[Rfam]
RNA: U5 spliceosomal RNA
RNA sequence: AGCCAUGUGAUAAGCUCAAAGUGAACUAUUCUUUCGCCUUUUAUUAAAGAAUACCGUGGGCUUGUCACUAUUAAAUGGCAUACGGUGAUUUUUGGAAGAGUCCUCGAAGAGGACGAU
Numbered sequence: 001a002g003c004c005a006u007g008u009g010a011u012a013a014g015c016u017c018a019a020a021g022u023g024a025a026c027u028a029u030u031c032u033u034u035c036g037c038c039u040u041u042u043a044u045u046a047a048a049g050a051a052u053a054c055c056g057u058g059g060g061c062u063u064g065u066c067a068c069u070a071u072u073a074a075a076u077g078g079c080a081u082a083c084g085g086u087g088a089u090u091u092u093u094g095g096a097a098g099a100g101u102c103c104u105c106g107a108a109g110a111g112g113a114c115g116a117u
Stems, first nucleotide, its partner, number of pairs: 003078004008067011027053008096117001100114004